[Rfam]
RNA sequence: CUCUGUAUUCUUCCACAGCUUUCUUGAACUGCAAAACUUCUUCAGAUUUUUUUUUUUUUCUUUUGAUAUCUCUUACGCAUAAAAUAGUGAUUUUCUUCAUAUCUCUGCUCGAUUGAUUUGCGGUUCAAUAAAGCUGUGGGAAGAUACAGACA
Numbered sequence: 001c002u003c004u005g006u007a008u009u010c011u012u013c014c015a016c017a018g019c020u021u022u023c024u025u026g027a028a029c030u031g032c033a034a035a036a037c038u039u040c041u042u043c044a045g046a047u048u049u050u051u052u053u054u055u056u057u058u059u060c061u062u063u064u065g066a067u068a069u070c071u072c073u074u075a076c077g078c079a080u081a082a083a084a085u086a087g088u089g090a091u092u093u094u095c096u097u098c099a100u101a102u103c104u105c106u107g108c109u110c111g112a113u114u115g116a117u118u119u120g121c122g123g124u125u126c127a128a129u130a131a132a133g134c135u136g137u138g139g140g141a142a143g144a145u146a147c148a149g150a151c152a
Base pairs, nucleotide, nucleotide: 003149004148005147006146007145013139014138015137017135018134019133020132021131022130024128025127026126027125029123030122031121032120033119034118035117
Rfam assigns this 152-nucleotide sequence to the family "MIR396 microRNA precursor family". For this family Rfam cites "Cloning and characterization of microRNAs from rice" (Sunkar et al., Plant Cell, 2005). Its family is annotated with miRNA-mediated post-transcriptional gene silencing and RISC complex in the Gene Ontology.